[Rfam]
The family of this 225-nucleotide RNA sequence from Gigaspora margarita is "ACEA small nucleolar RNA U3". Rfam classes the family as a C/D-box small nucleolar RNA. It scores 70 bits against the family's covariance model. Rfam links the family to the GO terms nucleolus and RNA processing. On this family, see Zwieb, Nucleic Acids Res 1997: "The uRNA database". Small nucleolar RNAs (snoRNAs) are involved in the processing and modification of rRNA in the nucleolus. There are two main classes of snoRNAs: the box C/D class, and the box H/ACA class. U3 snoRNA is a member of the box C/D class. Indeed, the box C/D element is a subset of the six short sequence elements found in all U3 snoRNAs, namely boxes A, A', B, C, C', and D. The U3 snoRNA secondary structure is characterised by a small 5' domain (with boxes A and A'), and a larger 3' domain (with boxes B, C, C', and D), the two domains being linked by a single-stranded hinge. Boxes B and C form the B/C motif, which appears to be exclusive to U3 snoRNAs, and boxes C' and D form the C'/D motif. The latter is functionally similar to the C/D motifs found in other snoRNAs. The 5' domain and the hinge region act as a pre-rRNA-binding domain. The 3' domain has conserved protein-binding sites. Both the box B/C and box C'/D motifs are sufficient for nuclear retention of U3 snoRNA. The box C'/D motif is also necessary for nucleolar localisation, stability and hyper-methylation of U3 snoRNA. Both box B/C and C'/D motifs are involved in specific protein interactions and are necessary for the rRNA processing functions of U3 snoRNA.

RNA sequence: UCGACUGUACUCUACAGGAUCUGUAUAUAGUCAGUCACUGGUCCUUGUUUUCCAACAAAGACACACGAAUUAAACUGGAUGAUGAAUCAUAGUGCACCAUCCGUAAAGGGAAGUGUGGGUAUGAUAUAUCUGGCCCCAGGGCUAAGAAAUAUUAUUCCAGUUGAUGAUCUUGCCACACCCCUAUUCCAGGGGUCUGGCGAGGAUGGUUGCACAGUCUGACAGUAA
Numbered sequence: 001u002c003g004a005c006u007g008u009a010c011u012c013u014a015c016a017g018g019a020u021c022u023g024u025a026u027a028u029a030g031u032c033a034g035u036c037a038c039u040g041g042u043c044c045u046u047g048u049u050u051u052c053c054a055a056c057a058a059a060g061a062c063a064c065a066c067g068a069a070u071u072a073a074a075c076u077g078g079a080u081g082a083u084g085a086a087u088c089a090u091a092g093u094g095c096a097c098c099a100u101c102c103g104u105a106a107a108g109g110g111a112a113g114u115g116u117g118g119g120u121a122u123g124a125u126a127u128a129u130c131u132g133g134c135c136c137c138a139g140g141g142c143u144a145a146g147a148a149a150u151a152u153u154a155u156u157c158c159a160g161u162u163g164a165u166g167a168u169c170u171u172g173c174c175a176c177a178c179c180c181c182u183a184u185u186c187c188a189g190g191g192g193u194c195u196g197g198c199g200a201g202g203a204u205g206g207u208u209g210c211a212c213a214g215u216c217u218g219a220c221a222g223u224a225a
Base pairs, nucleotide, nucleotide: 001040003038006033009031010030011029016026018024041062042061043060045058046057047056048055049054074223075222076221077220092212093211094210095209096208097206098205099204100203101202102201106171107170108169109168116159117158118157121153172198173197174196175195177193178192179191180190181189182188